Overview:
A member of the RNA family "Metazoan signal recognition particle RNA" from Tetradesmus obliquus, 289 nucleotides long. By type it is a non-coding RNA gene. Clan: SRP clan.
[Rfam]
RNA sequence: GCCGGCGGUGGUAGCACACCCGCUGUAAUCCGAGUGGGGGCAAGGGUGAUGGAAUACCGUAGACUCAUGCGGUCCAUCAGUCAUGUGUUGAGACUGUGCCUAGUCAGAGUCUGCAGUGCACCUGUGCACUUCCCGGAAGGGGGUUGCACUUGUGCAUGAUGCACAGGGGACUAUGUCAGGCAGGCAACUGAGCAGCAUUACCUGUCGCUGUAGAUGGCUGCUAGAUCACACAGUUGAGCAUGCUGGUGGGGCCCCCUUAUGAUACUCUCCCGGUGUGACUACACCCCAU
Numbered sequence: 001g002c003c004g005g006c007g008g009u010g011g012u013a014g015c016a017c018a019c020c021c022g023c024u025g026u027a028a029u030c031c032g033a034g035u036g037g038g039g040g041c042a043a044g045g046g047u048g049a050u051g052g053a054a055u056a057c058c059g060u061a062g063a064c065u066c067a068u069g070c071g072g073u074c075c076a077u078c079a080g081u082c083a084u085g086u087g088u089u090g091a092g093a094c095u096g097u098g099c100c101u102a103g104u105c106a107g108a109g110u111c112u113g114c115a116g117u118g119c120a121c122c123u124g125u126g127c128a129c130u131u132c133c134c135g136g137a138a139g140g141g142g143g144u145u146g147c148a149c150u151u152g153u154g155c156a157u158g159a160u161g162c163a164c165a166g167g168g169g170a171c172u173a174u175g176u177c178a179g180g181c182a183g184g185c186a187a188c189u190g191a192g193c194a195g196c197a198u199u200a201c202c203u204g205u206c207g208c209u210g211u212a213g214a215u216g217g218c219u220g221c222u223a224g225a226u227c228a229c230a231c232a233g234u235u236g237a238g239c240a241u242g243c244u245g246g247u248g249g250g251g252c253c254c255c256c257u258u259a260u261g262a263u264a265c266u267c268u269c270c271c272g273g274u275g276u277g278a279c280u281a282c283a284c285c286c287c288a289u
Stems, first nucleotide, its partner, number of pairs: 001041003004024004008019003029038003044286005051279001054276006061266002067257001069255001071253004076247005082242005088236001092235007100224002103222001105220003109215009118155004124149005130143005156160001163205005173198004181190003